[Rfam]
Rfam assigns this 86-nucleotide RNA from Halobacillus sp. BBL2006 to the family "Group II catalytic intron D1-D4-1". Pairs were carried over by alignment from the consensus structure.
RNA sequence: UAACCUUCCCAGCGAUGGGGAGCUGAACCGGCAGAAGUCAGCCGAGGUCAUAGUACUUCUUCUACUCUAGGGAAGACAGGAAGGAC
Number, nucleotide and partner (000 for none) at each position: 001u025002a024003a000004c000005c022006u021007u020008c019009c018010c017011a016012g000013c000014g000015a000016u011017g010018g009019g008020g007021a006022g005023c000024u002025g001026a000027a000028c000029c000030g000031g000032c000033a000034g000035a000036a000037g000038u045039c044040a000041g000042c000043c000044g039045a038046g000047g086048u085049c084050a000051u000052a000053g000054u000055a000056c079057u078058u000059c000060u074061u073062c072063u000064a000065c000066u000067c000068u000069a000070g000071g000072g062073a061074a060075g000076a000077c000078a057079g056080g000081a000082a000083g000084g049085a048086c047